Background: Rfam assigns this 149-nucleotide RNA sequence from Aureobasidium vineae to the family "Small nucleolar RNA snR80". The organism belongs to Aureobasidium, within Eukaryota. Rfam classes the family as an H/ACA-box small nucleolar RNA. Its family is annotated with RNA processing and nucleolus in the Gene Ontology. A reference for the family is Schattner et al. (2004), "Genome-wide searching for pseudouridylation guide snoRNAs: analysis of the Saccharomyces cerevisiae genome", Nucleic Acids Res.
RNA sequence: UUCACUUUGCCACACUCUGGACUCCGCCCAUCUCCCUGUGGCCUUGUCCAAUUUUAAGUGCAAAGAAGAUCGACUCUUGUCCUACUACUCACCGGCAUGUCUCCUCCUUCGGGAGCGUGGGCAUAUCGGUCCAUGUUUAAGGCCAACAU
Numbered sequence: 001u002u003c004a005c006u007u008u009g010c011c012a013c014a015c016u017c018u019g020g021a022c023u024c025c026g027c028c029c030a031u032c033u034c035c036c037u038g039u040g041g042c043c044u045u046g047u048c049c050a051a052u053u054u055u056a057a058g059u060g061c062a063a064a065g066a067a068g069a070u071c072g073a074c075u076c077u078u079g080u081c082c083u084a085c086u087a088c089u090c091a092c093c094g095g096c097a098u099g100u101c102u103c104c105u106c107c108u109u110c111g112g113g114a115g116c117g118u119g120g121g122c123a124u125a126u127c128g129g130u131c132c133a134u135g136u137u138u139a140a141g142g143c144c145a146a147c148a149u
Stems, first nucleotide, its partner, number of pairs: 007063003018050005026042003079144001081142002092129004097124003101121003